[Rfam]
RNA sequence: GGGCGGCUGAGGGGAAGGAGGCUCUAGUACGAGAGGAACGAGCCUCCGGCGCCACUGGUUUACCGGUUGUCCGGCAGGGCAUCGCCGGGCAGCUACGCGCCACGCGGUUAAAGGCUGAAAGCAUCUAAGCCUGAAACCGCCCCCGAAAAGAGCCGCCCAUUAAGGGCUCCCGUAAAAGACGGGGUUGAUAGGACCGGGGUGUAAGCGGCGAGCUUCGGCGAGCCGUUCAGCCCGCGGUCACUAAUCGCCCGCG
Numbered sequence: 001g002g003g004c005g006g007c008u009g010a011g012g013g014g015a016a017g018g019a020g021g022c023u024c025u026a027g028u029a030c031g032a033g034a035g036g037a038a039c040g041a042g043c044c045u046c047c048g049g050c051g052c053c054a055c056u057g058g059u060u061u062a063c064c065g066g067u068u069g070u071c072c073g074g075c076a077g078g079g080c081a082u083c084g085c086c087g088g089g090c091a092g093c094u095a096c097g098c099g100c101c102a103c104g105c106g107g108u109u110a111a112a113g114g115c116u117g118a119a120a121g122c123a124u125c126u127a128a129g130c131c132u133g134a135a136a137c138c139g140c141c142c143c144c145g146a147a148a149a150g151a152g153c154c155g156c157c158c159a160u161u162a163a164g165g166g167c168u169c170c171c172g173u174a175a176a177a178g179a180c181g182g183g184g185u186u187g188a189u190a191g192g193a194c195c196g197g198g199g200u201g202u203a204a205g206c207g208g209c210g211a212g213c214u215u216c217g218g219c220g221a222g223c224c225g226u227u228c229a230g231c232c233c234g235c236g237g238u239c240a241c242u243a244a245u246c247g248c249c250c251g252c253g
Stems, first nucleotide, its partner, number of pairs: 001158008011144004017047008048101005056095003063088005068081005105139003112132005164250004168184005189243003192239005197233003205226005212219001
RNA: Archaeal large subunit ribosomal RNA, nucleotides 2682 to 2934